[Rfam]
RNA sequence: GUUGUUGCAAUAGUAAUUGAACUUAGUACGAGAGGAACCGUUCAUUCAGAUAAUUGGUAUUUGGCCCUGUCUGACCAGGCACCGGGCCGAAGCUACCAUCUGCUGGAUUAUGGCUGAACGCCUCUAAGUCAGAAUCCAUGCUAGACGCGACGACAAUUUUUGGCCUCGCCUGCUGCUAGUUGGAUACGAAUAAGCUACGGCGCGGAACCAUACAAGGUGGAGUUUGCUCAGAGGCGGAAAGGCCGCUGGGUGUCCAUGGAUUGCAAUGUCACACGGGCGGGGAUGGAUCCUUUGCAUACGACUUAGAUGUGCAACGGGGUAUUGUAAGCGGUAGAGUAGCCUUGUUGUUACGAUCCGCUGAGAUUAAGCCUCUGUUGUCGGGUUUGU
Dot-bracket structure: ((((((((..((((.(.(((((.................))))).)(((((...(((....(((((.(((((....)))))...)))))...)))..))))).(((....(((((...........)))))....))).))))...))))))))..........(((((((.......................................................................................................)))))))...(((((((..(.......)..))....(((((((((.((.....((((.(..(((((......)))))..)))))....))....))).))))))..)))))..
Numbered sequence: 001g002u003u004g005u006u007g008c009a010a011u012a013g014u015a016a017u018u019g020a021a022c023u024u025a026g027u028a029c030g031a032g033a034g035g036a037a038c039c040g041u042u043c044a045u046u047c048a049g050a051u052a053a054u055u056g057g058u059a060u061u062u063g064g065c066c067c068u069g070u071c072u073g074a075c076c077a078g079g080c081a082c083c084g085g086g087c088c089g090a091a092g093c094u095a096c097c098a099u100c101u102g103c104u105g106g107a108u109u110a111u112g113g114c115u116g117a118a119c120g121c122c123u124c125u126a127a128g129u130c131a132g133a134a135u136c137c138a139u140g141c142u143a144g145a146c147g148c149g150a151c152g153a154c155a156a157u158u159u160u161u162g163g164c165c166u167c168g169c170c171u172g173c174u175g176c177u178a179g180u181u182g183g184a185u186a187c188g189a190a191u192a193a194g195c196u197a198c199g200g201c202g203c204g205g206a207a208c209c210a211u212a213c214a215a216g217g218u219g220g221a222g223u224u225u226g227c228u229c230a231g232a233g234g235c236g237g238a239a240a241g242g243c244c245g246c247u248g249g250g251u252g253u254c255c256a257u258g259g260a261u262u263g264c265a266a267u268g269u270c271a272c273a274c275g276g277g278c279g280g281g282g283a284u285g286g287a288u289c290c291u292u293u294g295c296a297u298a299c300g301a302c303u304u305a306g307a308u309g310u311g312c313a314a315c316g317g318g319g320u321a322u323u324g325u326a327a328g329c330g331g332u333a334g335a336g337u338a339g340c341c342u343u344g345u346u347g348u349u350a351c352g353a354u355c356c357g358c359u360g361a362g363a364u365u366a367a368g369c370c371u372c373u374g375u376u377g378u379c380g381g382g383u384u385u386g387u
Stems, first nucleotide, its partner, number of pairs: 001154008011143004016046001018044005047102005055095003062089005068081005104138003111131005165281007285385005290306002294302001311378006317371003321364002328358004333354001336351005
Shown here is a 387-nucleotide part of an RNA from Candidozyma haemuli, a member of the family "Eukaryotic large subunit ribosomal RNA".
The source organism's lineage runs through Eukaryota, Opisthokonta, Ascomycota, saccharomyceta and Candidozyma.
Pairs were carried over by alignment from the consensus structure, which is taken from published work.